[Rfam]
RNA sequence: GAUAAUUAUUGGCAAAAUUAGAGAAAUCUAAUGACGCAAAGCUAUAGGGUCCGAAAGGACAGCCAGUUGCAAUU
Numbered sequence: 001g002a003u004a005a006u007u008a009u010u011g012g013c014a015a016a017a018u019u020a021g022a023g024a025a026a027u028c029u030a031a032u033g034a035c036g037c038a039a040a041g042c043u044a045u046a047g048g049g050u051c052c053g054a055a056a057g058g059a060c061a062g063c064c065a066g067u068u069g070c071a072a073u074u
Base pairs, nucleotide, nucleotide: 012037013036017032018031019030020029021028022027040068041067042066043065047064048063049060050059051058
Description:
The family of this 74-nucleotide RNA from Butyrivibrio sp. M55 is "c-di-GMP-I riboswitch aptamer". The base pairs follow the family's consensus structure, which is taken from published work.